[Rfam]
RNA: Small nucleolar RNA SNORA61
RNA sequence: UUCCUCCGGAUCCCUUUCCCAUCAGAUCUGAAUACCGAUCUUGUGGUCGAAACAGGAGGAAAAGUAAAAUUCAGACUGGUCUUGGCCUUUUUGCUGGUAUGGUCCUGCUCUGAGAGGG
Numbered sequence: 001u002u003c004c005u006c007c008g009g010a011u012c013c014c015u016u017u018c019c020c021a022u023c024a025g026a027u028c029u030g031a032a033u034a035c036c037g038a039u040c041u042u043g044u045g046g047u048c049g050a051a052a053c054a055g056g057a058g059g060a061a062a063a064g065u066a067a068a069a070u071u072c073a074g075a076c077u078g079g080u081c082u083u084g085g086c087c088u089u090u091u092u093g094c095u096g097g098u099a100u101g102g103u104c105c106u107g108c109u110c111u112g113a114g115a116g117g118g
Base pairs, nucleotide, nucleotide: 003059004058005057006056007055019046020045021044023043025040026039027038028037076107078105079104081102082101085098086097087096